[Rfam]
RNA sequence: UCGGCUGGUCGCGACUGGCGAGUGACGUCUUUCGAGGUUUCCCGUGGCACGGACCGGGCAGCUCGUUGUUGAGGGGGGACCUUCAGAGACGGUCACGGGUGGAGUACCACCAGGGAGCGGCACUGCUGAACCUGUUACUGCGGUCGAACGCCUGGGCCGCAGUC
Numbered sequence: 001u002c003g004g005c006u007g008g009u010c011g012c013g014a015c016u017g018g019c020g021a022g023u024g025a026c027g028u029c030u031u032u033c034g035a036g037g038u039u040u041c042c043c044g045u046g047g048c049a050c051g052g053a054c055c056g057g058g059c060a061g062c063u064c065g066u067u068g069u070u071g072a073g074g075g076g077g078g079a080c081c082u083u084c085a086g087a088g089a090c091g092g093u094c095a096c097g098g099g100u101g102g103a104g105u106a107c108c109a110c111c112a113g114g115g116a117g118c119g120g121c122a123c124u125g126c127u128g129a130a131c132c133u134g135u136u137a138c139u140g141c142g143g144u145c146g147a148a149c150g151c152c153u154g155g156g157c158c159g160c161a162g163u164c
Base pairs, nucleotide, nucleotide: 003126008121009120010119011118012117015114016113017152018151019150020149099110100109101108102107141159142158143157144156145155

Notes:
Shown here is a 164-nucleotide RNA from Glycomyces paridis, a member of the family "ZMP/ZTP riboswitch aptamer (pfl RNA motif)". Pairs were carried over by alignment from the consensus structure, which is taken from published work. The source organism's lineage runs through Bacteria, Actinomycetota, Glycomycetales, Glycomycetaceae and Glycomyces.